This 64-nucleotide sequence from Varanus komodoensis belongs to the Rfam family "Small nucleolar RNA SNORD63".
[Rfam]
RNA sequence: GUGCAAGGAUGCAGUCAUCAACACAUCACUCUGAAAACAUGUGAAAGAUUUCUGUCUGAGCACA
Numbered sequence: 001g002u003g004c005a006a007g008g009a010u011g012c013a014g015u016c017a018u019c020a021a022c023a024c025a026u027c028a029c030u031c032u033g034a035a036a037a038c039a040u041g042u043g044a045a046a047g048a049u050u051u052c053u054g055u056c057u058g059a060g061c062a063c064a
Stems, first nucleotide, its partner, number of pairs: 001063004

Description: A reference for the family is Galardi et al. (2002), "Purified box C/D snoRNPs are able to reproduce site-specific 2'-O-methylation of target RNA in vitro", Mol Cell Biol. The base pairs follow the family's consensus structure, which was predicted with PFOLD. snoRNA U63 is found in both humans and mice.